The family of this 68-nucleotide RNA sequence from Mycobacterium sherrisii is "ASdes TB sRNA". Pairs were carried over by alignment from the consensus structure, which is taken from published work. The family's RNA type in Rfam is small RNA. It scores 66 bits against the family's covariance model.
[Rfam]
RNA sequence: AGCUGCACCGGAUCGACCGACCGGGUGACCACCAGGUAGUCGCGCAAUGCGACACUGUGCCGGGUCUC
Numbered sequence: 001a002g003c004u005g006c007a008c009c010g011g012a013u014c015g016a017c018c019g020a021c022c023g024g025g026u027g028a029c030c031a032c033c034a035g036g037u038a039g040u041c042g043c044g045c046a047a048u049g050c051g052a053c054a055c056u057g058u059g060c061c062g063g064g065u066c067u068c
Stems, first nucleotide, its partner, number of pairs: 004063001008059001011030001013028001016026003035056003040052005